[Rfam]
RNA: Plastid-rpl16 group II-D1 intron
RNA sequence: AAGAGUUUGGAGCCAAUAAAAACUAAGAAGAUUGACUCGGGAUCAUA
Numbered sequence: 001a002a003g004a005g006u007u008u009g010g011a012g013c014c015a016a017u018a019a020a021a022a023c024u025a026a027g028a029a030g031a032u033u034g035a036c037u038c039g040g041g042a043u044c045a046u047a
Base pairs, nucleotide, nucleotide: 007041008040010038011037012036014034015033016032017031